A member of the RNA family "c-di-AMP riboswitch aptamer (ydaO/yuaA leader)" from Actinomadura latina, 142 nucleotides long.
[Rfam]
RNA sequence: CGCUCACGCGCGCCGGACGCGGAGCCGGGGACCCAACGUGUCCUUUCUCGGGGUGAAUCGGCCUGCCUGCCCAUGGGCGGCCGUAGGGCGGCUUCCACGCCCGAACCCGUCAGCUAACCCGGUAGGCGCCAUGGAAGUCGAG
Numbered sequence: 001c002g003c004u005c006a007c008g009c010g011c012g013c014c015g016g017a018c019g020c021g022g023a024g025c026c027g028g029g030g031a032c033c034c035a036a037c038g039u040g041u042c043c044u045u046u047c048u049c050g051g052g053g054u055g056a057a058u059c060g061g062c063c064u065g066c067c068u069g070c071c072c073a074u075g076g077g078c079g080g081c082c083g084u085a086g087g088g089c090g091g092c093u094u095c096c097a098c099g100c101c102c103g104a105a106c107c108c109g110u111c112a113g114c115u116a117a118c119c120c121g122g123u124a125g126g127c128g129c130c131a132u133g134g135a136a137g138u139c140g141a142g
Base pairs, nucleotide, nucleotide: 001128002127003126004125009022024123025122026121027120028119029118034050051108052107053106059083060082061081062080086102087101088100089099

The source organism's lineage runs through Bacteria, Actinomycetota, Actinomycetes, Thermomonosporaceae and Actinomadura. A search with the family's covariance model found it, with a score of 71 bits.